Bacterial RNase P class A: a 367-nucleotide RNA from Bermanella marisrubri. Gene Ontology terms of the family: tRNA processing, ribonuclease P activity and dimeric ribonuclease P complex. Ribonuclease P (RNase P) is a ubiquitous endoribonuclease, found in archaea, bacteria and eukarya as well as chloroplasts and mitochondria. Lineage of the source: Bacteria > Pseudomonadati > Pseudomonadota > Gammaproteobacteria > Bermanella. The base pairs follow the family's consensus structure, which is taken from published work.

RNA sequence: GGAGUUGGCCGCACGAUCGCUGCUUGAAUUUGUUCAAGGAGAGGAAAGUCCGGGCUCCAUAGGGCAGGGUGCCAGAUAACGUCUGGGGGGCGUGAGCCCACGGCCAGUGCAGCAGAGAGUAUACCGCCGAUGGCUAUUUAGGUAGCACAGGUAAGGGUGAAAGGGUGCGGUAAGAGCGCACCGCGCGUCCGGUAACGGUACGCGGCAUGGUAAACCCCACUCGGAGCAAGACCAAAUAGGUUCCCUGAGGUGCGGCCCGCACUGGGAACGGGUAGGUUGCUUGAGCUUUGGAGCGAUCCAAAGCCUAGAUGAAUGAUCGUGACCUUGUUCGCAAGGGACAGAACCCGGCUUAUGGCCAACUCCACUU
Numbered sequence: 001g002g003a004g005u006u007g008g009c010c011g012c013a014c015g016a017u018c019g020c021u022g023c024u025u026g027a028a029u030u031u032g033u034u035c036a037a038g039g040a041g042a043g044g045a046a047a048g049u050c051c052g053g054g055c056u057c058c059a060u061a062g063g064g065c066a067g068g069g070u071g072c073c074a075g076a077u078a079a080c081g082u083c084u085g086g087g088g089g090g091c092g093u094g095a096g097c098c099c100a101c102g103g104c105c106a107g108u109g110c111a112g113c114a115g116a117g118a119g120u121a122u123a124c125c126g127c128c129g130a131u132g133g134c135u136a137u138u139u140a141g142g143u144a145g146c147a148c149a150g151g152u153a154a155g156g157g158u159g160a161a162a163g164g165g166u167g168c169g170g171u172a173a174g175a176g177c178g179c180a181c182c183g184c185g186c187g188u189c190c191g192g193u194a195a196c197g198g199u200a201c202g203c204g205g206c207a208u209g210g211u212a213a214a215c216c217c218c219a220c221u222c223g224g225a226g227c228a229a230g231a232c233c234a235a236a237u238a239g240g241u242u243c244c245c246u247g248a249g250g251u252g253c254g255g256c257c258c259g260c261a262c263u264g265g266g267a268a269c270g271g272g273u274a275g276g277u278u279g280c281u282u283g284a285g286c287u288u289u290g291g292a293g294c295g296a297u298c299c300a301a302a303g304c305c306u307a308g309a310u311g312a313a314u315g316a317u318c319g320u321g322a323c324c325u326u327g328u329u330c331g332c333a334a335g336g337g338a339c340a341g342a343a344c345c346c347g348g349c350u351u352a353u354g355g356c357c358a359a360c361u362c363c364a365c366u367u
Base pairs, nucleotide, nucleotide: 001363002362003361004360005359006358007357008356009355010354011353012321013320014319015318016317017316018315020041021040023038024037025036026035027034028033046351047350048349050348051347052346053345054344055226056225057224058223062258063257064256065255067222068221069220070219071218072086073085074084075083076082087101088099089098090097091096102217103216107215108214109211110210124156125155126152127151128150133146134145135144136143137142164182165181166180167179168178169177183206184204185203186202187201188200189198190197191196230278231277232276233275240269241268242267243266244265245264249263250262251261252260253259285304286303287302288301289300290299291298292297